Record summary:
Rfam assigns this 72-nucleotide RNA from Rodentolepis nana to the family "HDV ribozyme from F. prausnitzii". For this family Rfam cites "Widespread occurrence of self-cleaving ribozymes" (Webb et al., Science, 2009).

[Rfam]
Nucleotides: 072
Base pairs, nucleotide, nucleotide: 001038002037003036004035005034006033007032019031020030021029045058047056048055049054
Number, partner (000 for none) and nucleotide at each position: 001038g002037g003036g004035g005034u006033g007032c008000g009000c010000a011000a012000u013000a014000g015000a016000c017000u018000u019031a020030c021029c022000u023000c024000c025000a026000c027000g028000u029021g030020g031019u032007g033006c034005a035004c036003c037002c038001u039000g040000g041000g042000c043000a044000a045058c046000a047056u048055a049054u050000a051000u052000u053000c054049a055048u056047a057000c058045g059000g060000c061000a062000a063000a064000a065000a066000g067000u068000c069000g070000a071000a072000u
The organism belongs to Rodentolepis, within Eukaryota. Its family is annotated with catalytic activity in the Gene Ontology.